The record is an 84-nucleotide sequence from Lupinus angustifolius, which matches "Small nucleolar RNA Z122" in Rfam. Gene Ontology terms of the family: RNA processing and nucleolus. The family's RNA type in Rfam is C/D-box small nucleolar RNA. The base pairs follow the family's consensus structure, which was predicted with PFOLD.

[Rfam]
RNA sequence: UUUGGGAAAUGAUGCUAAAAUUUUGAGCAGAAGCAGUAGCUCUGUUGAUUUAAUUUUUGAUUUGCACGUCAGUCUGAUCCCAAG
Number, nucleotide and partner (000 for none) at each position: 001u084002u083003u082004g081005g080006g079007a078008a000009a000010u000011g000012a000013u000014g000015c000016u000017a000018a000019a000020a000021u000022u000023u000024u000025g000026a000027g000028c000029a000030g000031a000032a000033g000034c000035a000036g000037u000038a000039g000040c000041u000042c000043u000044g000045u000046u000047g000048a000049u000050u000051u000052a000053a000054u000055u000056u000057u000058u000059g000060a000061u000062u000063u000064g000065c000066a000067c000068g000069u000070c000071a000072g000073u000074c000075u000076g000077a000078u007079c006080c005081c004082a003083a002084g001